[Rfam]
RNA sequence: AAAAAUGCUGAGAAAAGAAGAGUAUAUAUGGAAUGCUGAACAGAGAACCUUGCCGGAAGAAAUUCUUAAGUGCUGAGAGCAGGGGACAGUGGAACAUAUAGAAGAUGGUCUUGGAGCUGCGUAGCUGAGGUUUUAAGCUUAGGUUACGACGUAUUCACACGUUAACGUGAGAGACUGUGUUAGCAGUCGGUAAGAUACUAGCUGAAAAGUUAGUAUGAAUUAAAGUGGCACCACGGGAGAUACUCUCGUCUUUAAA
Numbered sequence: 001a002a003a004a005a006u007g008c009u010g011a012g013a014a015a016a017g018a019a020g021a022g023u024a025u026a027u028a029u030g031g032a033a034u035g036c037u038g039a040a041c042a043g044a045g046a047a048c049c050u051u052g053c054c055g056g057a058a059g060a061a062a063u064u065c066u067u068a069a070g071u072g073c074u075g076a077g078a079g080c081a082g083g084g085g086a087c088a089g090u091g092g093a094a095c096a097u098a099u100a101g102a103a104g105a106u107g108g109u110c111u112u113g114g115a116g117c118u119g120c121g122u123a124g125c126u127g128a129g130g131u132u133u134u135a136a137g138c139u140u141a142g143g144u145u146a147c148g149a150c151g152u153a154u155u156c157a158c159a160c161g162u163u164a165a166c167g168u169g170a171g172a173g174a175c176u177g178u179g180u181u182a183g184c185a186g187u188c189g190g191u192a193a194g195a196u197a198c199u200a201g202c203u204g205a206a207a208a209g210u211u212a213g214u215a216u217g218a219a220u221u222a223a224a225g226u227g228g229c230a231c232c233a234c235g236g237g238a239g240a241u242a243c244u245c246u247c248g249u250c251u252u253u254a255a256a
Stems, first nucleotide, its partner, number of pairs: 007117002015112004025100006036089003048085004120148007150161003195216007222253004233249005
Rfam assigns this 256-nucleotide sequence from Lachnoclostridium phytofermentans to the family "T-box leader". Rfam describes the family as follows. Uncharged tRNA acts as the effector for transcription antitermination of genes in the T-box leader family. T-boxes are found upstream of many aminoacyl-tRNA synthetase genes and some amino acid biosynthetic genes usually in Gram-positive bacteria. Gene Ontology term of the family: tRNA binding. It is annotated as a cis-regulatory leader. Lineage of the source: Bacteria > Bacillota > Lachnospirales > Lachnoclostridium > Lachnoclostridium phytofermentans.